[Rfam]
RNA: Small nucleolar RNA SNORA68
RNA sequence: UGAGCCCCUAGGGAAGCCCGCUGUUCCUUAUCUGUAGUUUAAACAAAGGUGCUAGUACCAAGUGGAUUUCAAUGCCUUUGGGAGGCUGUGGCCUUGCCCCUCAAAAUGAAUUUGAAGGUUCUACACCU
Numbered sequence: 001u002g003a004g005c006c007c008c009u010a011g012g013g014a015a016g017c018c019c020g021c022u023g024u025u026c027c028u029u030a031u032c033u034g035u036a037g038u039u040u041a042a043a044c045a046a047a048g049g050u051g052c053u054a055g056u057a058c059c060a061a062g063u064g065g066a067u068u069u070c071a072a073u074g075c076c077u078u079u080g081g082g083a084g085g086c087u088g089u090g091g092c093c094u095u096g097c098c099c100c101u102c103a104a105a106a107u108g109a110a111u112u113u114g115a116a117g118g119u120u121c122u123a124c125a126c127c128u
Base pairs, nucleotide, nucleotide: 003053004052005051007049008048009047016039018037020035021034023032025030064121065120066119067118068117069116077105078104079103080102081101082100084098085097086096